[Rfam]
Nucleotides: 077
Stems, first nucleotide, its partner, number of pairs: 013045001015043001017042001021077004026072002028040003049066002052063004
Number, partner (000 for none) and nucleotide at each position: 001000g002000g003000u004000c005000a006000u007000a008000a009000a010000u011000u012000u013045g014000a015043g016000c017042c018000c019000a020000u021077a022076g023075c024074a025000c026072a027071a028040g029039u030038g031000c032000u033000c034000g035000c036000a037000g038030c039029a040028c041000a042017g043015c044000c045013c046000u047000g048000u049066c050065a051000a052063a053062u054061u055060c056000c057000a058000a059000u060055g061054a062053a063052u064000c065050u066049g067000c068000a069000a070000a071027u072026u073000u074024u075023g076022c077021u